[Rfam]
RNA sequence: AAAACUAGAAACAAUGAAAGCCCUACCUCUCUUUCAUGCUUACGGCUCCUAGGCCGUGCCUGCUACGAACAAAGUCUUGAGUUUUUUU
Numbered sequence: 001a002a003a004a005c006u007a008g009a010a011a012c013a014a015u016g017a018a019a020g021c022c023c024u025a026c027c028u029c030u031c032u033u034u035c036a037u038g039c040u041u042a043c044g045g046c047u048c049c050u051a052g053g054c055c056g057u058g059c060c061u062g063c064u065a066c067g068a069a070c071a072a073a074g075u076c077u078u079g080a081g082u083u084u085u086u087u088u
Stems, first nucleotide, its partner, number of pairs: 034068002039062001041058007